[Rfam]
RNA sequence: AUCUGCUGCUCGUCCACUGCGGUUCCUGUGCGCCGUCCGCAUCUGCCUGACGCGCGUUCGCUGCGUUUCGUUAGCC
Numbered sequence: 001a002u003c004u005g006c007u008g009c010u011c012g013u014c015c016a017c018u019g020c021g022g023u024u025c026c027u028g029u030g031c032g033c034c035g036u037c038c039g040c041a042u043c044u045g046c047c048u049g050a051c052g053c054g055c056g057u058u059c060g061c062u063g064c065g066u067u068u069c070g071u072u073a074g075c076c
Base pairs, nucleotide, nucleotide: 002016005013006012020035021034022033023032025030047074048073049072050071051070052069
The record is a 76-nucleotide sequence from Xanthomonas oryzae, which matches "Xanthomonas sRNA sX9" in Rfam. The match comes from Rfam's covariance-model search (61 bits). Pairs were carried over by alignment from the consensus structure, which was predicted with RNAalifold. The literature on the family includes a 2011 paper in Nucleic Acids Res by Schmidtke et al., "Genome-wide transcriptome analysis of the plant pathogen Xanthomonas identifies sRNAs with putative virulence functions". The organism belongs to Xanthomonas oryzae pv. oryzae, within Bacteria.